Rfam assigns this 94-nucleotide sequence from Neogobius melanostomus to the family "Z30 small nucleolar RNA". The match comes from Rfam's covariance-model search (65 bits). For this family Rfam cites "Purified box C/D snoRNPs are able to reproduce site-specific 2'-O-methylation of target RNA in vitro" (Galardi et al., Mol Cell Biol, 2002). Pairs were carried over by alignment from the consensus structure, which was predicted with PFOLD. Rfam links the family to the GO terms nucleolus and RNA processing. The family has 20 seed sequences and 802 matches in Rfam 15.1.
RNA sequence: CUGUGGUGAUGAUUGUUUGAACUGACCUGGCAUUGUUGAUCUCUGGGUUGACUCUGGCCAGGACAUGACCUCAUUUAAUCUUCUCUCUGAGCAG
Numbered sequence: 001c002u003g004u005g006g007u008g009a010u011g012a013u014u015g016u017u018u019g020a021a022c023u024g025a026c027c028u029g030g031c032a033u034u035g036u037u038g039a040u041c042u043c044u045g046g047g048u049u050g051a052c053u054c055u056g057g058c059c060a061g062g063a064c065a066u067g068a069c070c071u072c073a074u075u076u077a078a079u080c081u082u083c084u085c086u087c088u089g090a091g092c093a094g
Stems, first nucleotide, its partner, number of pairs: 003092002035052004